RNA sequence: GAACCUGUCGGUCAUCUACUCCUCCUCCCGGAUGUCCGACGCCGAAUGCGGCGUACCUCCUCCCACGCCGCAUUUGAAAUCAAAGCCCGCUGCCUCCUCCUCCCGGCAGCGGGCUUUUUC
Numbered sequence: 001g002a003a004c005c006u007g008u009c010g011g012u013c014a015u016c017u018a019c020u021c022c023u024c025c026u027c028c029c030g031g032a033u034g035u036c037c038g039a040c041g042c043c044g045a046a047u048g049c050g051g052c053g054u055a056c057c058u059c060c061u062c063c064c065a066c067g068c069c070g071c072a073u074u075u076g077a078a079a080u081c082a083a084a085g086c087c088c089g090c091u092g093c094c095u096c097c098u099c100c101u102c103c104c105g106g107c108a109g110c111g112g113g114c115u116u117u118u119u120c
Stems, first nucleotide, its partner, number of pairs: 007040003011036001013034005044075010084115011
Notes
The record is a 120-nucleotide sequence from Mesorhizobium sp. L-8-10, which matches "Alphaproteobacterial ar14" in Rfam. A search with the family's covariance model found it, with a score of 84 bits. Rfam describes the family as follows. Smr14C2 was renamed NfeR1 (Nodule Formation Efficiency RNA) highly expressed in salt stress and during the symbiotic interaction on legume roots. The family has 118 seed sequences and 784 matches in Rfam 15.1.